[Rfam]
c-di-GMP-I-GGC riboswitch aptamer: a 76-nucleotide sequence from Marinobacterium lacunae. The organism belongs to Marinobacterium, within Bacteria. Rfam links the family to the GO term cyclic-di-GMP binding. It scores 59 bits against the family's covariance model.
RNA sequence: CUCGAUAAUGGCAAACCCCGAGUAAUUGGGGGACGCAAAGCCACAGAUCCCGCGAGGGAUGGCUGGGCCGUCGAAG
Dot-bracket structure: (.((......((...((((((....))))))..[))...(((.((((((........))).]))))))...))..)